[Rfam]
RNA sequence: CCCGCGGUCAGACGGAAAGACCCCGUGCACCUUUACUACAACUUCACAGUGGCGUUAGUGAUGAUAUGUGUAGGAUAGGCGGGAGGCUUUGAAGCGUGGGCGCCAGUCCAUGUGGAGCCAUCCUUGAAAUACCGCCCUUAUCCUUAUUGACGUCUAACCGCGGCCCGUUAUCCGGGUCCGGGACCCUGUGUGGUGGGUAGUUUGACUGGGGCGGUCGCCUCCCAAAGUGUAACGGAGGCGCGCGAAGGUAGGCUCAGAGCGGUCGGACAUCGCUCGUUGAGUGCAAUGGCAUAAGCCUGCCUGACUGCGAGACUGACAGGUCGAGCAGAGUCGAAAGACGGCCAUAGUGAUCCGGUGGUCCCGAGUGGAAGGGCCAUCGCUCAACGGAUAAAAGGUACGCCGGGGAUAACAGGCUGAUGAUGCCCAAGAGUCCAUAUCGACGGCAUUGUUUGGCACCUCGAUGUCGGCUCAUCGCAUCCUGGGGCUGGAGCAGGUCCCAAGGGUUUGGCUGUUCGCCAAUUAAAGCGGUACGUGAGCUGGGUUUAGAACGUCGUGAGACAGUUCGGUCCCUAUCUGCCGUGGGUGUC
Dot-bracket structure: ((((((((.(((.((......((((.(((((((.((((...((.((((..(((((((((((.((((.(.........(((((..(((......((((((((....))))))))...)))............)))))).)))).)))))))))))...(((.((((((.....))))))))).....)))).))....))))..((((.....))))((((((...........))))))(.((....((((((((.((((((.......))))))...))((......))....))))))....((((..(((......)))..)))).(((....))).))..........(((((((.((........))))))))).....)......)))))..))))))........(((.((((((((...((.......))...)))))))..))))..........(((((((((((..((.((((((......))))))...)).(((((.....))))).....)))))..)..)))).).....(((((((....))).))))....))..)))))))))))....
Numbered sequence: 001c002c003c004g005c006g007g008u009c010a011g012a013c014g015g016a017a018a019g020a021c022c023c024c025g026u027g028c029a030c031c032u033u034u035a036c037u038a039c040a041a042c043u044u045c046a047c048a049g050u051g052g053c054g055u056u057a058g059u060g061a062u063g064a065u066a067u068g069u070g071u072a073g074g075a076u077a078g079g080c081g082g083g084a085g086g087c088u089u090u091g092a093a094g095c096g097u098g099g100g101c102g103c104c105a106g107u108c109c110a111u112g113u114g115g116a117g118c119c120a121u122c123c124u125u126g127a128a129a130u131a132c133c134g135c136c137c138u139u140a141u142c143c144u145u146a147u148u149g150a151c152g153u154c155u156a157a158c159c160g161c162g163g164c165c166c167g168u169u170a171u172c173c174g175g176g177u178c179c180g181g182g183a184c185c186c187u188g189u190g191u192g193g194u195g196g197g198u199a200g201u202u203u204g205a206c207u208g209g210g211g212c213g214g215u216c217g218c219c220u221c222c223c224a225a226a227g228u229g230u231a232a233c234g235g236a237g238g239c240g241c242g243c244g245a246a247g248g249u250a251g252g253c254u255c256a257g258a259g260c261g262g263u264c265g266g267a268c269a270u271c272g273c274u275c276g277u278u279g280a281g282u283g284c285a286a287u288g289g290c291a292u293a294a295g296c297c298u299g300c301c302u303g304a305c306u307g308c309g310a311g312a313c314u315g316a317c318a319g320g321u322c323g324a325g326c327a328g329a330g331u332c333g334a335a336a337g338a339c340g341g342c343c344a345u346a347g348u349g350a351u352c353c354g355g356u357g358g359u360c361c362c363g364a365g366u367g368g369a370a371g372g373g374c375c376a377u378c379g380c381u382c383a384a385c386g387g388a389u390a391a392a393a394g395g396u397a398c399g400c401c402g403g404g405g406a407u408a409a410c411a412g413g414c415u416g417a418u419g420a421u422g423c424c425c426a427a428g429a430g431u432c433c434a435u436a437u438c439g440a441c442g443g444c445a446u447u448g449u450u451u452g453g454c455a456c457c458u459c460g461a462u463g464u465c466g467g468c469u470c471a472u473c474g475c476a477u478c479c480u481g482g483g484g485c486u487g488g489a490g491c492a493g494g495u496c497c498c499a500a501g502g503g504u505u506u507g508g509c510u511g512u513u514c515g516c517c518a519a520u521u522a523a524a525g526c527g528g529u530a531c532g533u534g535a536g537c538u539g540g541g542u543u544u545a546g547a548a549c550g551u552c553g554u555g556a557g558a559c560a561g562u563u564c565g566g567u568c569c570c571u572a573u574c575u576g577c578c579g580u581g582g583g584u585g586u587c
Stems, first nucleotide, its partner, number of pairs: 001583008010575003014570002022404004027400002029396005035201004042193002045190004051154011063142004068137001078136005085119003094113008158181003162178006204216004217239006240385001242342002248300006254280002257275006281290002305328004311322003330339003353379007361372002413454003417451001418448007428438002465540001466538004470532001471529005478503002481498006505519005546564004550559003